[Rfam]
RNA sequence: AUCCACACUAUCAAUGAAUGUAUUCACCCGUGAUAUGACAUGGCUGUUCCACUUAGGACGAGGAUGUGGCAUCCUAUUAUCAGUCAUUGCACGAAAUUAAUAGGAUGCCACGUUCUCAUCCUAGGUGGAACAACCACGUCAUCUUAUAGGUGAAUCCAUUCAUUGAUAGUGUAGUU
Numbered sequence: 001a002u003c004c005a006c007a008c009u010a011u012c013a014a015u016g017a018a019u020g021u022a023u024u025c026a027c028c029c030g031u032g033a034u035a036u037g038a039c040a041u042g043g044c045u046g047u048u049c050c051a052c053u054u055a056g057g058a059c060g061a062g063g064a065u066g067u068g069g070c071a072u073c074c075u076a077u078u079a080u081c082a083g084u085c086a087u088u089g090c091a092c093g094a095a096a097u098u099a100a101u102a103g104g105a106u107g108c109c110a111c112g113u114u115c116u117c118a119u120c121c122u123a124g125g126u127g128g129a130a131c132a133a134c135c136a137c138g139u140c141a142u143c144u145u146a147u148a149g150g151u152g153a154a155u156c157c158a159u160u161c162a163u164u165g166a167u168a169g170u171g172u173a174g175u176u
Stems, first nucleotide, its partner, number of pairs: 001176001003174001005172003009168007017160003022155007030147004035142005041136003045132004051126002054123002057120002063114003069108011086097002
RNA: MIR807 microRNA precursor family